[Rfam]
Nucleotides: 101
Stems, first nucleotide, its partner, number of pairs: 006089005011053004016047001017025003033046004059082004063076004
Number, partner (000 for none) and nucleotide at each position: 001000u002000u003000u004000u005000u006089c007088c008087a009086c010085a011053a012052g013051g014050g015000g016047a017025g018024c019023c020000c021000a022000a023019g024018g025017c026000u027000g028000a029000g030000a031000g032000u033046g034045a035044a036043c037000g038000a039000a040000u041000g042000a043036g044035u045034u046033c047016u048000g049000a050014c051013c052012c053011u054000a055000u056000g057000a058000a059082c060081c061080u062079g063076u064075u065074a066073g067000u068000u069000a070000g071000u072000g073066c074065u075064a076063g077000c078000g079062u080061a081060g082059g083000g084000a085010u086009g087008u088007g089006g090000u091000u092000a093000u094000a095000g096000g097000a098000u099000a100000a101000a

The record is a 101-nucleotide sequence from Peribacillus deserti, which matches "TPP riboswitch aptamer (THI element)" in Rfam. NCBI's taxonomy places the organism under Bacteria, Bacillati, Bacilli, Bacillaceae, Peribacillus. Pairs were carried over by alignment from the consensus structure, which is taken from published work. The match comes from Rfam's covariance-model search (66 bits).